[Rfam]
RNA sequence: AGGAGGAACAACCACAGUGGCCUCGGCCAGCUCUGGAGCCCUGGAUUCAGCUCCGGCAGUAACUAAGGAGCUCUCAGUCUGCAGGGGCCAGGAUGCUCCGGGUUCAG
Numbered sequence: 001a002g003g004a005g006g007a008a009c010a011a012c013c014a015c016a017g018u019g020g021c022c023u024c025g026g027c028c029a030g031c032u033c034u035g036g037a038g039c040c041c042u043g044g045a046u047u048c049a050g051c052u053c054c055g056g057c058a059g060u061a062a063c064u065a066a067g068g069a070g071c072u073c074u075c076a077g078u079c080u081g082c083a084g085g086g087g088c089c090a091g092g093a094u095g096c097u098c099c100g101g102g103u104u105c106a107g
Stems, first nucleotide, its partner, number of pairs: 002099004007094001009091001012087002019079002022077002025074002029072006037064001041059003
The record is a 107-nucleotide sequence from Vulpes vulpes, which matches "mir-8834 microRNA precursor family" in Rfam. A search with the family's covariance model found it, with a score of 48 bits. Gene Ontology terms of the family: miRNA-mediated post-transcriptional gene silencing and RISC complex. Lineage of the source: Eukaryota > Gnathostomata > Amniota > Canidae > Vulpes. The family's consensus secondary structure was predicted with RNAalifold.